[Rfam]
RNA: Flavo-1 RNA
RNA sequence: AACUAGCCCCGAUAGUAGCGAUAUCCUUUUAAUUGUAGAACAGUGUUUCGACAAUUAAAAGAUAAAGCGAAUAGCGGGUAAAAUG
Numbered sequence: 001a002a003c004u005a006g007c008c009c010c011g012a013u014a015g016u017a018g019c020g021a022u023a024u025c026c027u028u029u030u031a032a033u034u035g036u037a038g039a040a041c042a043g044u045g046u047u048u049c050g051a052c053a054a055u056u057a058a059a060a061g062a063u064a065a066a067g068c069g070a071a072u073a074g075c076g077g078g079u080a081a082a083a084u085g
Base pairs, nucleotide, nucleotide: 009077010076011075013073014072018068019067023063024062025061029058030057031056032055033054034053035052036051